[Rfam]
RNA sequence: GCCUCGUGCCUGAAAGGGCGACGGGCUUGCCCGGAGCGAGAAGUCAGCAGAGGUCGUAGUAGUCGGGUUUCCCGACGAAGGGC
Numbered sequence: 001g002c003c004u005c006g007u008g009c010c011u012g013a014a015a016g017g018g019c020g021a022c023g024g025g026c027u028u029g030c031c032c033g034g035a036g037c038g039a040g041a042a043g044u045c046a047g048c049a050g051a052g053g054u055c056g057u058a059g060u061a062g063u064c065g066g067g068u069u070u071c072c073c074g075a076c077g078a079a080g081g082g083c
Base pairs, nucleotide, nucleotide: 001026002025004023007020008019009018010017011016044051045050053083054082055081062076063075064074065073066072067071

The record is an 83-nucleotide RNA sequence from Variovorax paradoxus, which matches "Group II catalytic intron D1-D4-1" in Rfam. It scores 49 bits against the family's covariance model. A reference for the family is Bonen and Vogel (2001), "The ins and outs of group II introns", Trends Genet. The source organism's lineage runs through Bacteria, Pseudomonadati, Betaproteobacteria, Burkholderiales and Variovorax. From the family's description: Group II introns are found in rRNA, tRNA and mRNA of organelles in fungi, plants and protists, and also in mRNA in bacteria.